[Rfam]
The family of this 118-nucleotide RNA from Planococcus sp. PAMC 21323 is "SAM riboswitch aptamer (S box leader)". Its family is annotated with regulation of gene expression in the Gene Ontology. Lineage of the source: Bacteria > Bacillati > Caryophanales > Caryophanaceae > Planococcus.
RNA sequence: CUCUUAUCAAGAGUGGCGGAGGGAUAGGCCCUGUGAUGCCCGGCAACCAACAGACGAUUUUGUCUGGAAAGGUGCUAAUUCCUACAGAACCGGAGUUAUAGGUUCUGACAGAUAAGAG
Numbered sequence: 001c002u003c004u005u006a007u008c009a010a011g012a013g014u015g016g017c018g019g020a021g022g023g024a025u026a027g028g029c030c031c032u033g034u035g036a037u038g039c040c041c042g043g044c045a046a047c048c049a050a051c052a053g054a055c056g057a058u059u060u061u062g063u064c065u066g067g068a069a070a071g072g073u074g075c076u077a078a079u080u081c082c083u084a085c086a087g088a089a090c091c092g093g094a095g096u097u098a099u100a101g102g103u104u105c106u107g108a109c110a111g112a113u114a115a116g117a118g
Base pairs, nucleotide, nucleotide: 001118002117003116004115005114006113007112008111013041015040016039017038021031022030023029025084026083027082028081042076043075044074045073047072048071051066052065053064054063080110085107086106087105088104089103090102